[Rfam]
RNA sequence: AAAAACUCAAUUCCUGGGUUUCCGUGUCUAACUUUUGAUCGUUCGUCUUAUUUAAAAAAGUAAUAAAAAAAUUUAAAAAGAUAAGUCAUGCAUAAAGUGUUAUUCAUGUUUUAUCAUCUAACAAUAAUGGAAAUACUAAUCAUAAAAAAAUUUCAUAUAAGAUGGGUGGUCAAACAUUGAACACCAAAACCCAG
Numbered sequence: 001a002a003a004a005a006c007u008c009a010a011u012u013c014c015u016g017g018g019u020u021u022c023c024g025u026g027u028c029u030a031a032c033u034u035u036u037g038a039u040c041g042u043u044c045g046u047c048u049u050a051u052u053u054a055a056a057a058a059a060g061u062a063a064u065a066a067a068a069a070a071a072u073u074u075a076a077a078a079a080g081a082u083a084a085g086u087c088a089u090g091c092a093u094a095a096a097g098u099g100u101u102a103u104u105c106a107u108g109u110u111u112u113a114u115c116a117u118c119u120a121a122c123a124a125u126a127a128u129g130g131a132a133a134u135a136c137u138a139a140u141c142a143u144a145a146a147a148a149a150a151u152u153u154c155a156u157a158u159a160a161g162a163u164g165g166g167u168g169g170u171c172a173a174a175c176a177u178u179g180a181a182c183a184c185c186a187a188a189a190c191c192c193a194g
Stems, first nucleotide, its partner, number of pairs: 027181001029179003034174018